[Rfam]
RNA sequence: GCAACCUGAAGAUGGCGCGCGGCAACCUGGUGGUGUUCCGCUCGCUGCUCGGCAUCAGCUGGAUGUGGUUCUUCGGCGCCGUCUUCCUCAGCCAGUUCCCGAGCUUCGCCCGUGACGUAUUG
Numbered sequence: 001g002c003a004a005c006c007u008g009a010a011g012a013u014g015g016c017g018c019g020c021g022g023c024a025a026c027c028u029g030g031u032g033g034u035g036u037u038c039c040g041c042u043c044g045c046u047g048c049u050c051g052g053c054a055u056c057a058g059c060u061g062g063a064u065g066u067g068g069u070u071c072u073u074c075g076g077c078g079c080c081g082u083c084u085u086c087c088u089c090a091g092c093c094a095g096u097u098c099c100c101g102a103g104c105u106u107c108g109c110c111c112g113u114g115a116c117g118u119a120u121u122g
Stems, first nucleotide, its partner, number of pairs: 010049002014045001015043001017041003021037004026032001051121002054118002060112003063105001067099002071095002074091001076089001078088001081086001
RNA: Burkholderia RNA 11